Rfam assigns this 103-nucleotide RNA from Caenorhabditis remanei to the family "mir-42 microRNA precursor family". The sequence is in the family's curated seed alignment. Rfam 15.1 lists 9 matches to the family in 8 species. For this family Rfam cites "Repertoire and evolution of miRNA genes in four divergent nematode species" (de Wit et al., Genome Res, 2009). Pairs were carried over by alignment from the consensus structure, which was predicted with RNAalifold.

RNA sequence: AAACCCUUGUCGGACCUUUGUGGAUGUUUCCUUUUUCGGUGAAGUUGUUCCGUUGAAUUAUCUUCUUCACCGGGUUAACAUCUACAGAGGUCCUCGAGGGUUU
Numbered sequence: 001a002a003a004c005c006c007u008u009g010u011c012g013g014a015c016c017u018u019u020g021u022g023g024a025u026g027u028u029u030c031c032u033u034u035u036u037c038g039g040u041g042a043a044g045u046u047g048u049u050c051c052g053u054u055g056a057a058u059u060a061u062c063u064u065c066u067u068c069a070c071c072g073g074g075u076u077a078a079c080a081u082c083u084a085c086a087g088a089g090g091u092c093c094u095c096g097a098g099g100g101u102u103u
Stems, first nucleotide, its partner, number of pairs: 003101006012093017031074002037072008